[Rfam]
RNA sequence: AUACCCCAUGAUGCUCAGGUCCGCCGCAUCUCCUGGGUCCGUGGGGUUGGCCGGUCAGCGCUGGCGUAACAGUGGCCUCCUCGUACCGCUGCCAGUUGCUGGCCGGCCCCCUU
Numbered sequence: 001a002u003a004c005c006c007c008a009u010g011a012u013g014c015u016c017a018g019g020u021c022c023g024c025c026g027c028a029u030c031u032c033c034u035g036g037g038u039c040c041g042u043g044g045g046g047u048u049g050g051c052c053g054g055u056c057a058g059c060g061c062u063g064g065c066g067u068a069a070c071a072g073u074g075g076c077c078u079c080c081u082c083g084u085a086c087c088g089c090u091g092c093c094a095g096u097u098g099c100u101g102g103c104c105g106g107c108c109c110c111c112u113u
Base pairs, nucleotide, nucleotide: 003047004046005045006044007043008042009041010040014037015036016035017034018033019032049108050107051106052105053104054103055102056101057100058099059098

The record is a 113-nucleotide RNA from Nitratireductor basaltis, which matches "EcpR1" in Rfam. The match comes from Rfam's covariance-model search (109 bits). About the family: Perviously named SmelC291, SmrC10, or Sra33. According to its overproduction phenotype it was renamed Elongated Cell Phenotype RNA1. Induced by stress,EcpR1 negatively regulates cell cycle master regulatory genes dnaA and gcrA at post-transcriptional level by base pairing between its strongly conserved GC-rich loop and the target mRNAs. Its family is annotated with negative regulation of cell cycle, regulation of translation in response to stress and mRNA binding in the Gene Ontology. NCBI's taxonomy places the organism under Bacteria, Alphaproteobacteria, Hyphomicrobiales, Phyllobacteriaceae, Nitratireductor.